This 70-nucleotide RNA sequence from Nylanderia fulva belongs to the Rfam family "mir-965 microRNA precursor family". The family has 16 seed sequences and 224 matches in Rfam 15.1. The base pairs follow the family's consensus structure, which was predicted with RNAalifold. NCBI's taxonomy places the organism under Eukaryota, Hymenoptera, Formicoidea, Lasiini, Nylanderia. A search with the family's covariance model found it, with a score of 72 bits.

RNA sequence: UUCCGAGGGGGAAAAGUUAUAGCGAUUAUGAGAAAUUGAGCCAUAAGCGUAUAGCUUUUCCCCUUCGGCG
Number, nucleotide and partner (000 for none) at each position: 001u000002u000003c068004c067005g066006a065007g064008g000009g062010g061011g060012a000013a058014a057015a000016g000017u054018u053019a052020u051021a050022g000023c000024g000025a000026u046027u045028a044029u043030g042031a000032g000033a000034a000035a000036u000037u000038g000039a000040g000041c000042c030043a029044u028045a027046a026047g000048c000049g000050u021051a020052u019053a018054g017055c000056u000057u014058u013059u000060c011061c010062c009063c000064u007065u006066c005067g004068g003069c000070g000